mir-9229 microRNA precursor family: a 76-nucleotide RNA from Pipistrellus kuhlii. It scores 75 bits against the family's covariance model. Taxonomically the source falls in Pipistrellus (Eukaryota, Boreoeutheria, Chiroptera, Yangochiroptera). Rfam 15.1 lists 27,225 matches to the family in 9 species.
[Rfam]
RNA sequence: GAGACACCCGUAGGAGGCAAGAUUUGCUUCAGUGGGGCUUUGGUGCUCACUAAGUCUGCUUCCUGAAUGUGUCCCU
Numbered sequence: 001g002a003g004a005c006a007c008c009c010g011u012a013g014g015a016g017g018c019a020a021g022a023u024u025u026g027c028u029u030c031a032g033u034g035g036g037g038c039u040u041u042g043g044u045g046c047u048c049a050c051u052a053a054g055u056c057u058g059c060u061u062c063c064u065g066a067a068u069g070u071g072u073c074c075c076u
Stems, first nucleotide, its partner, number of pairs: 001075001003073005011065002014062006021056003029053001031051006037044002